[Rfam]
RNA sequence: UCUAACUUAAGCAACAUAAGCCCUACCUGCUCUUAUGUCCUUGCGUCCCCUUAGACGCGCCAGUGUGAAUAAGCAUUAACAAAAACAC
Numbered sequence: 001u002c003u004a005a006c007u008u009a010a011g012c013a014a015c016a017u018a019a020g021c022c023c024u025a026c027c028u029g030c031u032c033u034u035a036u037g038u039c040c041u042u043g044c045g046u047c048c049c050c051u052u053a054g055a056c057g058c059g060c061c062a063g064u065g066u067g068a069a070u071a072a073g074c075a076u077u078a079a080c081a082a083a084a085a086c087a088c
Base pairs, nucleotide, nucleotide: 036067037066040063041062042059043058044057045056046055047054

BsrC: an 88-nucleotide sequence from Oceanobacillus piezotolerans. On this family, see Saito et al., Gene 2008: "Novel small RNA-encoding genes in the intergenic regions of Bacillus subtilis". Rfam's curators write: The 301 nucleotide sequence from Kouji Nakamura has been trimmed to a highly conserved ~85 nucleotide long core to form this family. Pairs were carried over by alignment from the consensus structure, which was predicted with CMfinder. NCBI's taxonomy places the organism under Bacteria, Bacillota, Caryophanales, Bacillaceae, Oceanobacillus.